[Rfam]
Record summary: This 170-nucleotide part of an RNA from Owenia fusiformis belongs to the Rfam family "Eukaryotic small subunit ribosomal RNA". Lineage of the source: Eukaryota > Bilateria > Sedentaria > Sabellida > Owenia.
RNA sequence: CCGCCCGUCGCUACUACCGAUUGAACGGUUUAGUGAGAUCCUUGGAUCGGUCCCGGCACGGGGGGCAACCCUCGAGCCGGUGUCGCCGAGAAGACGAUCAAACUUGAUCGUUUAGAGGAAGUAAAAGUCGUAACAAGGUUUCCGUAGGUGAACCUGCGGAAGGAUCAUUA
Numbered sequence: 001c002c003g004c005c006c007g008u009c010g011c012u013a014c015u016a017c018c019g020a021u022u023g024a025a026c027g028g029u030u031u032a033g034u035g036a037g038a039u040c041c042u043u044g045g046a047u048c049g050g051u052c053c054c055g056g057c058a059c060g061g062g063g064g065g066c067a068a069c070c071c072u073c074g075a076g077c078c079g080g081u082g083u084c085g086c087c088g089a090g091a092a093g094a095c096g097a098u099c100a101a102a103c104u105u106g107a108u109c110g111u112u113u114a115g116a117g118g119a120a121g122u123a124a125a126a127g128u129c130g131u132a133a134c135a136a137g138g139u140u141u142c143c144g145u146a147g148g149u150g151a152a153c154c155u156g157c158g159g160a161a162g163g164a165u166c167a168u169u170a
Stems, first nucleotide, its partner, number of pairs: 001137001003134001006130002009127001012123004017118002021114001023113008032104003037099004042094002047089005053080005059074004139162010

The match comes from Rfam's covariance-model search (1751 bits). The base pairs follow the family's consensus structure, which is taken from published work.